The record is a 73-nucleotide RNA from Cloeon dipterum, which matches "mir-190 microRNA precursor family" in Rfam. Taxonomically the source falls in Cloeon (Eukaryota, Protostomia, Altocrustacea, Insecta). Gene Ontology terms of the family: miRNA-mediated post-transcriptional gene silencing and RISC complex. The base pairs follow the family's consensus structure, which was predicted with RNAalifold. The literature on the family includes a 2006 paper in Nucleic Acids Res by Kloosterman et al., "Cloning and expression of new microRNAs from zebrafish".
RNA sequence: UCUCCUGUAAGAUAUGUUUGAUAUUCUUGGUUGAUUUUGCCCAACCAGGAAUCAAACAUAUUAUUACGGUGGG
Numbered sequence: 001u002c003u004c005c006u007g008u009a010a011g012a013u014a015u016g017u018u019u020g021a022u023a024u025u026c027u028u029g030g031u032u033g034a035u036u037u038u039g040c041c042c043a044a045c046c047a048g049g050a051a052u053c054a055a056a057c058a059u060a061u062u063a064u065u066a067c068g069g070u071g072g073g
Stems, first nucleotide, its partner, number of pairs: 005069005011062012024049002029046005